Shown here is a 97-nucleotide sequence from Sinorhizobium terangae, a member of the family "Repression of heat shock gene expression (ROSE) element".
RNA sequence: CGAGCCGCCUUUUGGGGUUCGCAGUCGAGGGGCAUCGUCCUCUUCGACGCUGCUCCUCAUCGUCCAUGUUGCUUCAAGGAGGAUAUGGCUAUGAGAA
Numbered sequence: 001c002g003a004g005c006c007g008c009c010u011u012u013u014g015g016g017g018u019u020c021g022c023a024g025u026c027g028a029g030g031g032g033c034a035u036c037g038u039c040c041u042c043u044u045c046g047a048c049g050c051u052g053c054u055c056c057u058c059a060u061c062g063u064c065c066a067u068g069u070u071g072c073u074u075c076a077a078g079g080a081g082g083a084u085a086u087g088g089c090u091a092u093g094a095g096a097a
Stems, first nucleotide, its partner, number of pairs: 001021006008015002030055005036049004056095005064088007072081003

Taxonomically the source falls in Sinorhizobium (Bacteria, Pseudomonadati, Pseudomonadota, Rhizobiaceae).
The match comes from Rfam's covariance-model search (69 bits).
Rfam links the family to the GO terms regulation of translation and response to temperature stimulus.
On this family, see Nocker et al., Nucleic Acids Res 2001: "A mRNA-based thermosensor controls expression of rhizobial heat shock genes".